[Rfam]
RNA sequence: GGCUGAGGACGACCUCGACACGAUUCCCAUGGCCGGGACGACCCG
Numbered sequence: 001g002g003c004u005g006a007g008g009a010c011g012a013c014c015u016c017g018a019c020a021c022g023a024u025u026c027c028c029a030u031g032g033c034c035g036g037g038a039c040g041a042c043c044c045g
Base pairs, nucleotide, nucleotide: 002019004017005016006015007014008013034045035044036043037042